A member of the RNA family "SAM riboswitch aptamer (S box leader)" from Fictibacillus arsenicus, 103 nucleotides long.
[Rfam]
RNA sequence: UUCUUAUCGAGAGAGGUGGAGGGACUGGCCCUUUGAAGCCUCGGCAACAACUAUUUUAGAACUGUGCCAAUUCCAGCAAGCUUACAAGCUUGAUAGAUAAGGA
Numbered sequence: 001u002u003c004u005u006a007u008c009g010a011g012a013g014a015g016g017u018g019g020a021g022g023g024a025c026u027g028g029c030c031c032u033u034u035g036a037a038g039c040c041u042c043g044g045c046a047a048c049a050a051c052u053a054u055u056u057u058a059g060a061a062c063u064g065u066g067c068c069a070a071u072u073c074c075a076g077c078a079a080g081c082u083u084a085c086a087a088g089c090u091u092g093a094u095a096g097a098u099a100a101g102g103a
Stems, first nucleotide, its partner, number of pairs: 001103008013042005021031003025076004043068004048064002051059003072095001077092006

Its family is annotated with regulation of gene expression in the Gene Ontology. The source organism's lineage runs through Bacteria, Bacillota, Bacilli, Fictibacillaceae and Fictibacillus.